[Rfam]
RNA sequence: CGCCCGCGCCACGGGUGGUCCAGGAGGUUGCUGCAGCGGAGGGGCCGUUAUGGAUUGGUGUGAGAUGGGUGGAGGGGGAGGAGCGUACGUCGCCGCGGCGACGUACGCUCCUCCCCCUCCACCCAUCUCACACCAAUCCAUAACGGCCCCUCCGCUGCAGCAACCUCCUGGACCACCCGUGGCGCGGGC
Numbered sequence: 001c002g003c004c005c006g007c008g009c010c011a012c013g014g015g016u017g018g019u020c021c022a023g024g025a026g027g028u029u030g031c032u033g034c035a036g037c038g039g040a041g042g043g044g045c046c047g048u049u050a051u052g053g054a055u056u057g058g059u060g061u062g063a064g065a066u067g068g069g070u071g072g073a074g075g076g077g078g079a080g081g082a083g084c085g086u087a088c089g090u091c092g093c094c095g096c097g098g099c100g101a102c103g104u105a106c107g108c109u110c111c112u113c114c115c116c117c118u119c120c121a122c123c124c125a126u127c128u129c130a131c132a133c134c135a136a137u138c139c140a141u142a143a144c145g146g147c148c149c150c151u152c153c154g155c156u157g158c159a160g161c162a163a164c165c166u167c168c169u170g171g172a173c174c175a176c177c178c179g180u181g182g183c184g185c186g187g188g189c
Stems, first nucleotide, its partner, number of pairs: 003188005009182011021170034056135018075116011087104007